[Rfam]
RNA: Small Cajal body specific RNA 1
Organism: Monodelphis domestica
RNA sequence: AAGCACUUGAUACUAACCAAGCUAUCUGUAUCCUGAUGCCGCUCCAGAAGUUGGGAUGUAUCUUGUGAUAGCUGGGUUUUAUAAGUGCAAUAUUAAAGUAAACCAUGAGUCUUUUAAGCCCAGCAUGUGGAGUUGAGCAUGCUGGGUUAUAACUCAAAGGUACAGCA
Number, nucleotide and partner (000 for none) at each position: 001a000002a000003g088004c087005a086006c085007u084008u083009g000010a000011u000012a000013c000014u000015a078016a077017c076018c075019a000020a073021g072022c071023u070024a069025u068026c067027u060028g059029u058030a057031u056032c055033c054034u000035g052036a051037u050038g000039c000040c047041g000042c000043u000044c000045c000046a000047g040048a000049a000050g037051u036052u035053g000054g033055g032056a031057u030058g029059u028060a027061u000062c000063u000064u000065g000066u000067g026068a025069u024070a023071g022072c021073u020074g000075g018076g017077u016078u015079u000080u000081a000082u000083a008084a007085g006086u005087g004088c003089a000090a000091u000092a000093u000094u000095a000096a000097a000098g000099u000100a000101a000102a161103c160104c159105a000106u000107g000108a000109g000110u000111c000112u000113u000114u000115u000116a000117a000118g000119c000120c000121c000122a000123g142124c141125a140126u139127g138128u137129g000130g000131a000132g000133u000134u000135g000136a000137g128138c127139a126140u125141g124142c123143u156144g155145g154146g153147u152148u000149a000150u000151a000152a147153c146154u145155c144156a143157a000158a000159g104160g103161u102162a000163c000164a000165g000166c000167a000